[Rfam]
RNA sequence: UAGUCUGAUGCAAAGAUCCCGGACAACCAGGCAGGACACGAAAAGACAAUGACCUGUCUCCUUCCAGCUCUUGCAGGUGCAAACACCCUGUACGGUGCCG
Numbered sequence: 001u002a003g004u005c006u007g008a009u010g011c012a013a014a015g016a017u018c019c020c021g022g023a024c025a026a027c028c029a030g031g032c033a034g035g036a037c038a039c040g041a042a043a044a045g046a047c048a049a050u051g052a053c054c055u056g057u058c059u060c061c062u063u064c065c066a067g068c069u070c071u072u073g074c075a076g077g078u079g080c081a082a083a084c085a086c087c088c089u090g091u092a093c094g095g096u097g098c099c100g
Stems, first nucleotide, its partner, number of pairs: 033062003077098001079096002
RNA: Pyrrolysine insertion sequence mttB